[Rfam]
Shown here is a 69-nucleotide RNA sequence, a member of the family "RAGATH-18 RNA". Rfam's curators write: Actinobacteria, Firmicutes, Fusobacteria, Thermotogae (1 example).
RNA sequence: CCUAUGGAGUAUCACAUCAAACGCAAGUAGCUGUUAUCAAAAGCAAAAGCAGAUACGAGGAAAUAGGAA
Number, nucleotide and partner (000 for none) at each position: 001c067002c066003u065004a064005u063006g000007g000008a000009g056010u055011a054012u053013c052014a000015c000016a000017u000018c000019a000020a000021a000022c000023g050024c049025a000026a000027g000028u000029a000030g044031c043032u042033g000034u041035u040036a000037u000038c000039a000040a035041a034042a032043g031044c030045a000046a000047a000048a000049g024050c023051a000052g013053a012054u011055a010056c009057g000058a000059g000060g000061a000062a000063a005064u004065a003066g002067g001068a000069a000
Pairs were carried over by alignment from the consensus structure, which is taken from published work.